[Rfam]
RNA sequence: UUAGAAGGUUACCUCUGUCGUUACCCACCCCGUUUGGAUACGAGAAUGUAGCUGUCGA
Numbered sequence: 001u002u003a004g005a006a007g008g009u010u011a012c013c014u015c016u017g018u019c020g021u022u023a024c025c026c027a028c029c030c031c032g033u034u035u036g037g038a039u040a041c042g043a044g045a046a047u048g049u050a051g052c053u054g055u056c057g058a
Stems, first nucleotide, its partner, number of pairs: 007053006018043004025037003

A member of the RNA family "Transposase-1 RNA", 58 nucleotides long. The base pairs follow the family's consensus structure, which is taken from published work. By type it is a small RNA.